This 94-nucleotide RNA from Brassica carinata belongs to the Rfam family "Small nucleolar RNA Z102/R77". Its family is annotated with nucleolus and RNA processing in the Gene Ontology. A reference for the family is Barneche et al. (2001), "Identification of 66 box C/D snoRNAs in Arabidopsis thaliana: extensive gene duplications generated multiple isoforms predicting new ribosomal RNA 2'-O-methylation sites", J Mol Biol. NCBI's taxonomy places the organism under Eukaryota, Tracheophyta, Mesangiospermae, Pentapetalae, Brassica. The family has 9 seed sequences and 1,346 matches in Rfam 15.1.
RNA sequence: GAAUGGAAUGAUGAAUGUUGAACUUUAUUGUUCCCUAUUGGUUUGAUAGCCGAGAUGAUGGCAUCUUACGUAUUAGCUCUAUCUGAUCCCGUUC
Numbered sequence: 001g002a003a004u005g006g007a008a009u010g011a012u013g014a015a016u017g018u019u020g021a022a023c024u025u026u027a028u029u030g031u032u033c034c035c036u037a038u039u040g041g042u043u044u045g046a047u048a049g050c051c052g053a054g055a056u057g058a059u060g061g062c063a064u065c066u067u068a069c070g071u072a073u074u075a076g077c078u079c080u081a082u083c084u085g086a087u088c089c090c091g092u093u094c
Stems, first nucleotide, its partner, number of pairs: 002093004045065001049062003